The family of this 38-nucleotide sequence from Gnetum parvifolium is "Plastid psbT antisense RNA". Plastid-psbT-asRNA is an antisense RNA (asRNA) motif reported in Plastids It has been shown that psbT expression is controlled by two antisense RNAs originated from psbN transcription by the nuclear-encoded polymerase (NEP), in which the short antisense RNA hybridizes to psbT CDS, thereby stabilizing psbT transcript while blocking its translation during photooxidative stress.
RNA sequence: GUAGUAGGAUCUCCUAGUUUCUGGAAUGCUCCGAAUUC
Numbered sequence: 001g002u003a004g005u006a007g008g009a010u011c012u013c014c015u016a017g018u019u020u021c022u023g024g025a026a027u028g029c030u031c032c033g034a035a036u037u038c
Stems, first nucleotide, its partner, number of pairs: 003018001005016004020035001022033004
Rfam 15.1 lists 1,866 matches to the family in 287 species. It is one of the family's seed sequences.